Plant signal recognition particle RNA: a 285-nucleotide RNA from Populus tomentosa. By type it is a non-coding RNA gene. The literature on the family includes a 2001 paper in J Mol Biol by Batey et al., "Structural and energetic analysis of RNA recognition by a universally conserved protein from the signal recognition particle". The family has 63 seed sequences and 4,988 matches in Rfam 15.1. Pairs were carried over by alignment from the consensus structure, which is taken from published work.

[Rfam]
RNA sequence: GUCGGGUUAACAAUUAGCCUGGAUAAAAUUAUCUGACUCGUUGAAUCAACUUAGAAUUUAGGUAAUUCGGUAGAUUUAGGUAUCUGGUCUGCCCGUUCCAAGCCAGGAGUUGAGCCCAGGCACCCUAGUGAAGACCUGGGUGUCGUGGCUCCUAGAGUGGAGGGCACAGCGUGAGGCUGGUCUCACAGAGCAGCGAUUACCUUCCACUCUUGGCAGUGGAAGGAUUACGGGCCGGUGCCACCUGGAUCUGCAUGGCUGGAUGAGCUAGUCCUAAUUGGACCAUCA
Numbered sequence: 001g002u003c004g005g006g007u008u009a010a011c012a013a014u015u016a017g018c019c020u021g022g023a024u025a026a027a028a029u030u031a032u033c034u035g036a037c038u039c040g041u042u043g044a045a046u047c048a049a050c051u052u053a054g055a056a057u058u059u060a061g062g063u064a065a066u067u068c069g070g071u072a073g074a075u076u077u078a079g080g081u082a083u084c085u086g087g088u089c090u091g092c093c094c095g096u097u098c099c100a101a102g103c104c105a106g107g108a109g110u111u112g113a114g115c116c117c118a119g120g121c122a123c124c125c126u127a128g129u130g131a132a133g134a135c136c137u138g139g140g141u142g143u144c145g146u147g148g149c150u151c152c153u154a155g156a157g158u159g160g161a162g163g164g165c166a167c168a169g170c171g172u173g174a175g176g177c178u179g180g181u182c183u184c185a186c187a188g189a190g191c192a193g194c195g196a197u198u199a200c201c202u203u204c205c206a207c208u209c210u211u212g213g214c215a216g217u218g219g220a221a222g223g224a225u226u227a228c229g230g231g232c233c234g235g236u237g238c239c240a241c242c243u244g245g246a247u248c249u250g251c252a253u254g255g256c257u258g259g260a261u262g263a264g265c266u267a268g269u270c271c272u273a274a275u276u277g278g279a280c281c282a283u284c285a
Base pairs, nucleotide, nucleotide: 001037002036003035004020005019006018007017008016009015010014042285043284044283050277052273053272054271056269057268058267063263065261066260067259068258069257070256071255073248074247075246076245077244078243079242080241081237082236084235085234086233087232088231089230090229091228093223094222096221097220098219099218100217102214103213104212105211106210107209108208109207110206112151113150114149115148116147119144120143121142122141123140124139125138128135129134152157159204160203161202162201163200168197170195171194172193177188178187179186